[Rfam]
RNA sequence: AUGACAAAUGCGGGAGAUAUUCCAAUGCGGAAUAGCCGAAGAUGCAAUAUAACUGGUGCCAGCCUUUUAUAGAAACUUUCAGGCAUAAGAACCGCUUUUUGAUG
Numbered sequence: 001a002u003g004a005c006a007a008a009u010g011c012g013g014g015a016g017a018u019a020u021u022c023c024a025a026u027g028c029g030g031a032a033u034a035g036c037c038g039a040a041g042a043u044g045c046a047a048u049a050u051a052a053c054u055g056g057u058g059c060c061a062g063c064c065u066u067u068u069a070u071a072g073a074a075a076c077u078u079u080c081a082g083g084c085a086u087a088a089g090a091a092c093c094g095c096u097u098u099u100u101g102a103u104g
Base pairs, nucleotide, nucleotide: 006099007098008097010095011094012093013092019033020032021031022030035084036083037082038080039079042078044076048071049070050069051068052067